The family of this 73-nucleotide RNA sequence from Sulfuritortus calidifontis is "SAH (S-adenosyl-L-homocysteine) riboswitch aptamer".

RNA sequence: CCGCCUGAGGAGCGCUGCAACCCGAUCGGGCCAGGCUCAGGCGGGAUCACUUAGGUAACGGCGCUCGUUCAUU
Numbered sequence: 001c002c003g004c005c006u007g008a009g010g011a012g013c014g015c016u017g018c019a020a021c022c023c024g025a026u027c028g029g030g031c032c033a034g035g036c037u038c039a040g041g042c043g044g045g046a047u048c049a050c051u052u053a054g055g056u057a058a059c060g061g062c063g064c065u066c067g068u069u070c071a072u073u
Stems, first nucleotide, its partner, number of pairs: 002043007021030003
NCBI's taxonomy places the organism under Bacteria, Pseudomonadati, Nitrosomonadales, Thiobacillaceae, Sulfuritortus.